[Rfam]
RNA: ZMP/ZTP riboswitch aptamer (pfl RNA motif)
Organism: Pseudoflavonifractor sp. AF19-9AC
RNA sequence: AGCGGGCGGUAUGACUGACGGAAGUGGAAGUGACCACAGGGAGUACCGCCUUGGAAAGCCGACCGUCUGGGCGCACCUC
Numbered sequence: 001a002g003c004g005g006g007c008g009g010u011a012u013g014a015c016u017g018a019c020g021g022a023a024g025u026g027g028a029a030g031u032g033a034c035c036a037c038a039g040g041g042a043g044u045a046c047c048g049c050c051u052u053g054g055a056a057a058g059c060c061g062a063c064c065g066u067c068u069g070g071g072c073g074c075a076c077c078u079c
Base pairs, nucleotide, nucleotide: 004051005050006049007048008047009046010045011044012043015040016039017067018066019065020064021063024037025036026035027034058072059071060070